[Rfam]
RNA sequence: CGACAUUCCGAGGGGGGCACCGAACGGUGCUGAGAUGGGCGUUGAGCCCGGACCCUUGAACCUGAUCCGGGUCAUACCGGCGUAGGAACGGAAAACAGGUGUCCG
Numbered sequence: 001c002g003a004c005a006u007u008c009c010g011a012g013g014g015g016g017g018c019a020c021c022g023a024a025c026g027g028u029g030c031u032g033a034g035a036u037g038g039g040c041g042u043u044g045a046g047c048c049c050g051g052a053c054c055c056u057u058g059a060a061c062c063u064g065a066u067c068c069g070g071g072u073c074a075u076a077c078c079g080g081c082g083u084a085g086g087a088a089c090g091g092a093a094a095a096c097a098g099g100u101g102u103c104c105g
Stems, first nucleotide, its partner, number of pairs: 006093005011056004017030005037049004061086004067080004
Shown here is a 105-nucleotide RNA sequence from Rhizobium sp. Leaf371, a member of the family "TPP riboswitch aptamer (THI element)".